[Rfam]
A member of the RNA family "TPP riboswitch aptamer (THI element)" from Lachnospiraceae bacterium TWA4, 107 nucleotides long. Rfam describes the family as follows. Vitamin B(1) in its active form thiamin pyrophosphate (TPP) is an essential coenzyme that is synthesised by coupling of pyrimidine and thiazole moieties in bacteria.
RNA sequence: AUUGAUAACAAGGGGAGCUUAUGGUGAUAGGCUGAGAGGAAGUUUAAAACUUCGACCCAUAACCUGAUUUGGAUAAUGCCAACGUAGGAACGCCGUUAUACAAAAUU
Numbered sequence: 001a002u003u004g005a006u007a008a009c010a011a012g013g014g015g016a017g018c019u020u021a022u023g024g025u026g027a028u029a030g031g032c033u034g035a036g037a038g039g040a041a042g043u044u045u046a047a048a049a050c051u052u053c054g055a056c057c058c059a060u061a062a063c064c065u066g067a068u069u070u071g072g073a074u075a076a077u078g079c080c081a082a083c084g085u086a087g088g089a090a091c092g093c094c095g096u097u098a099u100a101c102a103a104a105a106u107u
Base pairs, nucleotide, nucleotide: 006095009092012058013057014056017032018031019030020029021028039053040052041051042050043049063088064087065086066085069082070081071080072079
Record summary: The source organism's lineage runs through Bacteria, Bacillati, Bacillota, Lachnospirales and Lachnospiraceae.